[Rfam]
RNA: Plastid-clpP 5UTR RNA
RNA sequence: AAUUAUGUUCAUAAGAACAACGACAAGCAAAUUUAUUCUUUACUCGAUAAGUACCAAUAUGCAAUGGUG
Numbered sequence: 001a002a003u004u005a006u007g008u009u010c011a012u013a014a015g016a017a018c019a020a021c022g023a024c025a026a027g028c029a030a031a032u033u034u035a036u037u038c039u040u041u042a043c044u045c046g047a048u049a050a051g052u053a054c055c056a057a058u059a060u061g062c063a064a065u066g067g068u069g
Base pairs, nucleotide, nucleotide: 003022006019007018008017009016010015044067045066051060052059053058